Notes
The record is a 147-nucleotide RNA from Enterococcus hirae, which matches "glmS glucosamine-6-phosphate activated ribozyme aptamer" in Rfam. Lineage of the source: Bacteria > Bacilli > Lactobacillales > Enterococcus > Enterococcus hirae. The family's RNA type in Rfam is riboswitch. Rfam describes the family as follows. This entry contains a glucosamine-6-phosphate activated ribozyme that is found in the mRNA for GlmS. GlmS is an enzyme that uses fructose-6-phosphate and glutamine to generate glucosamine-6-phosphate. It scores 93 bits against the family's covariance model.
RNA sequence: UUUUAAGGAAUAGCGCCUGGUCUGUAGUUACAGAUGACGAGGAAAGGGUUUAUCGAAAUAUUCGGCGGAUGACCCUAGGGACUGCACUCUAUAGGAUCGAUCAAAACCUAUCUGUGAAGAUAGAACAAAAAUCGAUUCCAGCAGCUG
Numbered sequence: 001u002u003u004u005a006a007g008g009a010a011u012a013g014c015g016c017c018u019g020g021u022c023u024g025u026a027g028u029u030a031c032a033g034a035u036g037a038c039g040a041g042g043a044a045a046g047g048g049u050u051u052a053u054c055g056a057a058a059u060a061u062u063c064g065g066c067g068g069a070u071g072a073c074c075c076u077a078g079g080g081a082c083u084g085c086a087c088u089c090u091a092u093a094g095g096a097u098c099g100a101u102c103a104a105a106a107c108c109u110a111u112c113u114g115u116g117a118a119g120a121u122a123g124a125a126c127a128a129a130a131a132u133c134g135a136u137u138c139c140a141g142c143a144g145c146u147g
Base pairs, nucleotide, nucleotide: 020035021034022033023032024031025030045076046075047074048073049072053065054064055063056062077090078089079088080087095137096136097135098134099133100132108123109122110121111120112119113118